The family of this 101-nucleotide RNA sequence from Calothrix sp. 336/3 is "CyVA-1 RNA". NCBI's taxonomy places the organism under Bacteria, Cyanobacteriota, Nostocales, Calotrichaceae, Calothrix. About the family: Cyanobacteria, Acidobacteria (1 example), Verrucomicrobia (1 example). The family's consensus secondary structure is taken from published work.

RNA sequence: AUACUGGUGGGGAGUUUUACCGUUGUGUCCCCUUGCUGUAUCUUGUUCGCGCAGCGUGUCCGCAGGACAUAGGAGAGCGAUGUUACAGAUGCAGACAGUAG
Numbered sequence: 001a002u003a004c005u006g007g008u009g010g011g012g013a014g015u016u017u018u019a020c021c022g023u024u025g026u027g028u029c030c031c032c033u034u035g036c037u038g039u040a041u042c043u044u045g046u047u048c049g050c051g052c053a054g055c056g057u058g059u060c061c062g063c064a065g066g067a068c069a070u071a072g073g074a075g076a077g078c079g080a081u082g083u084u085a086c087a088g089a090u091g092c093a094g095a096c097a098g099u100a101g
Stems, first nucleotide, its partner, number of pairs: 002100005009032004037093007